[Rfam]
RNA sequence: CCAGGCCCAGACACUGGAAGGAUUGACAGAUUGAGAGCUCUUUCUCGAUUCGGUGGUUGGUGGUGCAUGGCCGUUCUUAGUUGGUGGAGCGAUCUGUCUGGUUGAUUCCGAUAACGAACGAGACUCUAUCCUGCUAACUAGUCGGCGGAUCGACUCCCAAGACGGGUUUCCAUCCGCGGGGUUUUCGGGCGGGGGUCGCUUCGACCCGUCGUCGUUCCUUCGCGGUCGCGUCGCUGUCGUCGCUGCUGCUGCGGGGGGCAUGGCGCGCGGUUCGCGUUCGCGGCGGUAGGUCUUCGACGUCGGCGGCCGUCUCCGCUAUCAUCGCUCGUCGGUGGUGGUGGGGCGGUAUUCGUCGUCGUUCGUCGUCUUCGUCGCGACGCUCCGUCGCUAUUUCUUCGCACGGCGCGCGCGCGGCGCGGUUUAGCUUGGGGCCUGCGCGGCGGCGGUGUUCGGGGUCCUCGUCUUGCCUCGCGCGUUGGGGCUCUGCGAGGGGCGUCCGUCGCAAUAUCUUCUUAGAGGGAUCGGCGGCGUCCAGCCGCAAGAGAGAGAGCAAUAACAGGUCUGUGAUGCCCUUAGAUGUCCUGGGCA
Numbered sequence: 001c002c003a004g005g006c007c008c009a010g011a012c013a014c015u016g017g018a019a020g021g022a023u024u025g026a027c028a029g030a031u032u033g034a035g036a037g038c039u040c041u042u043u044c045u046c047g048a049u050u051c052g053g054u055g056g057u058u059g060g061u062g063g064u065g066c067a068u069g070g071c072c073g074u075u076c077u078u079a080g081u082u083g084g085u086g087g088a089g090c091g092a093u094c095u096g097u098c099u100g101g102u103u104g105a106u107u108c109c110g111a112u113a114a115c116g117a118a119c120g121a122g123a124c125u126c127u128a129u130c131c132u133g134c135u136a137a138c139u140a141g142u143c144g145g146c147g148g149a150u151c152g153a154c155u156c157c158c159a160a161g162a163c164g165g166g167u168u169u170c171c172a173u174c175c176g177c178g179g180g181g182u183u184u185u186c187g188g189g190c191g192g193g194g195g196u197c198g199c200u201u202c203g204a205c206c207c208g209u210c211g212u213c214g215u216u217c218c219u220u221c222g223c224g225g226u227c228g229c230g231u232c233g234c235u236g237u238c239g240u241c242g243c244u245g246c247u248g249c250u251g252c253g254g255g256g257g258g259c260a261u262g263g264c265g266c267g268c269g270g271u272u273c274g275c276g277u278u279c280g281c282g283g284c285g286g287u288a289g290g291u292c293u294u295c296g297a298c299g300u301c302g303g304c305g306g307c308c309g310u311c312u313c314c315g316c317u318a319u320c321a322u323c324g325c326u327c328g329u330c331g332g333u334g335g336u337g338g339u340g341g342g343g344c345g346g347u348a349u350u351c352g353u354c355g356u357c358g359u360u361c362g363u364c365g366u367c368u369u370c371g372u373c374g375c376g377a378c379g380c381u382c383c384g385u386c387g388c389u390a391u392u393u394c395u396u397c398g399c400a401c402g403g404c405g406c407g408c409g410c411g412c413g414g415c416g417c418g419g420u421u422u423a424g425c426u427u428g429g430g431g432c433c434u435g436c437g438c439g440g441c442g443g444c445g446g447u448g449u450u451c452g453g454g455g456u457c458c459u460c461g462u463c464u465u466g467c468c469u470c471g472c473g474c475g476u477u478g479g480g481g482c483u484c485u486g487c488g489a490g491g492g493g494c495g496u497c498c499g500u501c502g503c504a505a506u507a508u509c510u511u512c513u514u515a516g517a518g519g520g521a522u523c524g525g526c527g528g529c530g531u532c533c534a535g536c537c538g539c540a541a542g543a544g545a546g547a548g549a550g551c552a553a554u555a556a557c558a559g560g561u562c563u564g565u566g567a568u569g570c571c572c573u574u575a576g577a578u579g580u581c582c583u584g585g586g587c588a
Base pairs, nucleotide, nucleotide: 001585002584003583004582005581007579012055013054014053015052016051025044026043028041029040030039059573060572062571063570064569065568068567069565070561071560072559073557074556075555080119081118082117084115085114086095087094088093099110100109101108125549126548127547130519131518132517134516135515136514137513140510141509522542525539526538527537528536529535
RNA: Eukaryotic small subunit ribosomal RNA, nucleotides 2300 to 2887